[Rfam]
RNA sequence: AGUCCAAUGGGAGUCUUAAUUUAUUUCUUAACCUUUGCUAUGUCAGGGUCCGCGGGGUUUUUAAAGAAUUGUUUCUUCUUCCUGCU
Numbered sequence: 001a002g003u004c005c006a007a008u009g010g011g012a013g014u015c016u017u018a019a020u021u022u023a024u025u026u027c028u029u030a031a032c033c034u035u036u037g038c039u040a041u042g043u044c045a046g047g048g049u050c051c052g053c054g055g056g057g058u059u060u061u062u063a064a065a066g067a068a069u070u071g072u073u074u075c076u077u078c079u080u081c082c083u084g085c086u
Stems, first nucleotide, its partner, number of pairs: 009079004016064004025055002031049005037043002
Shown here is an 86-nucleotide RNA sequence from Catagonus wagneri, a member of the family "Stem loopII regulatory element in POLB". Rfam links the family to the GO term regulation of RNA stability. Taxonomically the source falls in Catagonus (Eukaryota, Opisthokonta, Teleostomi, Euteleostomi). By type it is a cis-regulatory element.